[Rfam]
RNA sequence: GAAAGACGGGUGAGAAACCCGUCCUCCGGAAGACCAAGGGUUCCAGGGUCAAGCUAAUCUUCCCUGGGUAAGUCGGGACCUAAGGCGAGGCCGACAGGCGUAGUCGAUGGACAACGGGUUGAUAUUCCCGUACCGGUGAAGAACCGUCAAAGACCUAACCAGUAGUGCUAAGCAAACCAAUGUUCCAUGGAUCCUUCGGGUGAAGUGGGGCGGCGGCUGCGAACCCGAUGCUGGGGUGGUGAGCGCAGUAACAGGUGUGACGCAGGAAGGUAGCCAGUGCCGGGCGAUGGUUGUCCCGGUGUAAAUGCGUAGCCCGUUCCCGAGUAAUAUUUGGGGACUGUGGGUGAGACAUGAUGCGGACCCGUAUGGGGAAGCUGGUGAUCCUAUGCUGCCAAGAAAAGCAUCGGCGUGAGGUUUGAACCGCCCGUACCCCAAACCGACUCAGGUGGUCAGGUAGAGAAUACUCAGGAGAU
Numbered sequence: 001g002a003a004a005g006a007c008g009g010g011u012g013a014g015a016a017a018c019c020c021g022u023c024c025u026c027c028g029g030a031a032g033a034c035c036a037a038g039g040g041u042u043c044c045a046g047g048g049u050c051a052a053g054c055u056a057a058u059c060u061u062c063c064c065u066g067g068g069u070a071a072g073u074c075g076g077g078a079c080c081u082a083a084g085g086c087g088a089g090g091c092c093g094a095c096a097g098g099c100g101u102a103g104u105c106g107a108u109g110g111a112c113a114a115c116g117g118g119u120u121g122a123u124a125u126u127c128c129c130g131u132a133c134c135g136g137u138g139a140a141g142a143a144c145c146g147u148c149a150a151a152g153a154c155c156u157a158a159c160c161a162g163u164a165g166u167g168c169u170a171a172g173c174a175a176a177c178c179a180a181u182g183u184u185c186c187a188u189g190g191a192u193c194c195u196u197c198g199g200g201u202g203a204a205g206u207g208g209g210g211c212g213g214c215g216g217c218u219g220c221g222a223a224c225c226c227g228a229u230g231c232u233g234g235g236g237u238g239g240u241g242a243g244c245g246c247a248g249u250a251a252c253a254g255g256u257g258u259g260a261c262g263c264a265g266g267a268a269g270g271u272a273g274c275c276a277g278u279g280c281c282g283g284g285c286g287a288u289g290g291u292u293g294u295c296c297c298g299g300u301g302u303a304a305a306u307g308c309g310u311a312g313c314c315c316g317u318u319c320c321c322g323a324g325u326a327a328u329a330u331u332u333g334g335g336g337a338c339u340g341u342g343g344g345u346g347a348g349a350c351a352u353g354a355u356g357c358g359g360a361c362c363c364g365u366a367u368g369g370g371g372a373a374g375c376u377g378g379u380g381a382u383c384c385u386a387u388g389c390u391g392c393c394a395a396g397a398a399a400a401g402c403a404u405c406g407g408c409g410u411g412a413g414g415u416u417u418g419a420a421c422c423g424c425c426c427g428u429a430c431c432c433c434a435a436a437c438c439g440a441c442u443c444a445g446g447u448g449g450u451c452a453g454g455u456a457g458a459g460a461a462u463a464c465u466c467a468g469g470a471g472a473u
Stems, first nucleotide, its partner, number of pairs: 005023006024471004032451004038431002043067006052060002074427004079110002084105003088101001090099003114229001115227006232423003237418003254405005262392004268385003273379005279300006301357002305352003312345003316338007324330001361370003437446002453465004
Bacterial large subunit ribosomal RNA: a 473-nucleotide part of an RNA from Leucobacter chromiisoli. Gene Ontology terms of the family: ribosome and structural constituent of ribosome.